[Rfam]
RNA sequence: CCUGCCCCAGCUUCUGUUGCAGGCAUGGCUGCAGUGCCACGUUUGUGUCAUUGGGUGGCAGAGAGGAUAAGGUGAGGUCUUCCCCUGGUGCUUGGACCCACAUAGGCUCCCAGGAUUGCUCAACAACC
Numbered sequence: 001c002c003u004g005c006c007c008c009a010g011c012u013u014c015u016g017u018u019g020c021a022g023g024c025a026u027g028g029c030u031g032c033a034g035u036g037c038c039a040c041g042u043u044u045g046u047g048u049c050a051u052u053g054g055g056u057g058g059c060a061g062a063g064a065g066g067a068u069a070a071g072g073u074g075a076g077g078u079c080u081u082c083c084c085c086u087g088g089u090g091c092u093u094g095g096a097c098c099c100a101c102a103u104a105g106g107c108u109c110c111c112a113g114g115a116u117u118g119c120u121c122a123a124c125a126a127c128c
Base pairs, nucleotide, nucleotide: 002061003060004059005058006057007055008054010052015047019046020045021044022043024041026039027038028037029036071124073122074121075120076119081115082114083113087111088110090107091106092105093104
Dot-bracket structure: .(((((((.(....(...((((.(.((((......)))).).)))))....).)).))))).........(.((((....(((...((.((((..........))))..)).)))...)))).)....
Background: A member of the RNA family "Small nucleolar RNA SNORA17" from Formicarius rufipectus, 128 nucleotides long. Clan: SNORA17 clan. The family has 53 seed sequences and 5,784 matches in Rfam 15.1. Its family is annotated with RNA processing and nucleolus in the Gene Ontology. Rfam describes the family as follows. snoRNA ACA 17 belongs to the H/ACA family of snoRNAs and is predicted to guide pseudouridylation of the 28S rRNA at positions U4659 and U4598.